[Rfam]
c-di-AMP riboswitch aptamer (ydaO/yuaA leader): a 167-nucleotide sequence from Streptomyces sp. Ncost-T10-10d. NCBI's taxonomy places the organism under Bacteria, Actinomycetota, Kitasatosporales, Streptomycetaceae, Streptomyces. It scores 70 bits against the family's covariance model. Its family is annotated with regulation of gene expression and cyclic-di-AMP binding in the Gene Ontology. For this family Rfam cites "New RNA motifs suggest an expanded scope for riboswitches in bacterial genetic control" (Barrick et al., Proc Natl Acad Sci U S A, 2004).
Nucleotides: 167
Base pairs, nucleotide, nucleotide: 011151012150013149014148018044019043020042045146046145047144048143049142050141055068069131070130071129077102078101079100080099081098082097105125106124107123108122
Number, partner (000 for none) and nucleotide at each position: 001000c002000g003000g004000g005000c006000g007000c008000c009000c010000g011151c012150g013149c014148c015000g016000a017000a018044u019043c020042c021000g022000u023000c024000c025000u026000g027000c028000c029000c030000u031000c032000g033000c034000g035000g036000g037000a038000g039000u040000u041000c042020g043019g044018a045146a046145c047144c048143g049142g050141g051000g052000a053000c054000c055068c056000a057000c058000a059000c060000g061000c062000a063000g064000c065000a066000c067000c068055g069131g070130g071129g072000u073000g074000a075000a076000u077102c078101g079100g080099u081098c082097c083000u084000u085000g086000u087000c088000c089000c090000c091000c092000c093000a094000c095000u096000c097082g098081g099080a100079c101078c102077g103000u104000a105125g106124g107123g108122c109000a110000g111000c112000c113000u114000u115000c116000c117000g118000u119000u120000c121000c122108g123107c124106c125105c126000g127000a128000a129071c130070c131069c132000g133000a134000c135000a136000g137000c138000u139000a140000a141050c142049c143048c144047g145046g146045u147000a148014g149013g150012c151011g152000g153000u154000c155000c156000a157000c158000g159000g160000a161000a162000g163000g164000a165000g166000a167000u